A member of the RNA family "c-di-GMP-I riboswitch aptamer" from Alkalibacillus haloalkaliphilus, 88 nucleotides long. Pairs were carried over by alignment from the consensus structure, which is taken from published work. Lineage of the source: Bacteria > Bacillota > Bacilli > Caryophanales > Alkalibacillus.

[Rfam]
RNA sequence: UGCUUUUAUGGGCAAACUCAUUGAAAAAUGAGGACGCAAAACCACAGGUCUAAAGGCAAGAAAUUGCUACGACGGCUGGGUUGCACUU
Numbered sequence: 001u002g003c004u005u006u007u008a009u010g011g012g013c014a015a016a017c018u019c020a021u022u023g024a025a026a027a028a029u030g031a032g033g034a035c036g037c038a039a040a041a042c043c044a045c046a047g048g049u050c051u052a053a054a055g056g057c058a059a060g061a062a063a064u065u066g067c068u069a070c071g072a073c074g075g076c077u078g079g080g081u082u083g084c085a086c087u088u
Stems, first nucleotide, its partner, number of pairs: 012037002017032006040082004045078003048073003056067004